MIR398 microRNA precursor family: a 115-nucleotide RNA sequence from Oryza sativa. Rfam's curators put it in the seed alignment. Pairs were carried over by alignment from the consensus structure, which was predicted with WAR. Its family is annotated with miRNA-mediated post-transcriptional gene silencing and RISC complex in the Gene Ontology. The organism belongs to Oryza sativa, within Eukaryota.
RNA sequence: GCUGAACCCAGAGGAGUGGUACUGAGAACACAGGUGCCAAUACAAUGUAUGGUGAGCUACUGUAUAAUGGAGUAAUUCUGUAACUGUGUUCUCAGGUCACCCCUUUGGGUUUCUU
Number, nucleotide and partner (000 for none) at each position: 001g000002c000003u000004g000005a000006a000007c109008c108009c000010a000011g105012a104013g103014g102015a000016g100017u099018g098019g097020u000021a000022c000023u000024g093025a092026g091027a090028a089029c088030a087031c086032a085033g084034g000035u000036g000037c000038c000039a000040a000041u000042a000043c000044a000045a000046u000047g000048u000049a000050u000051g000052g000053u000054g000055a000056g000057c000058u000059a000060c000061u000062g000063u000064a000065u000066a000067a000068u000069g000070g000071a000072g000073u000074a000075a000076u000077u000078c000079u000080g000081u000082a000083a000084c033085u032086g031087u030088g029089u028090u027091c026092u025093c024094a000095g000096g000097u019098c018099a017100c016101c000102c014103c013104u012105u011106u000107g000108g008109g007110u000111u000112u000113c000114u000115u000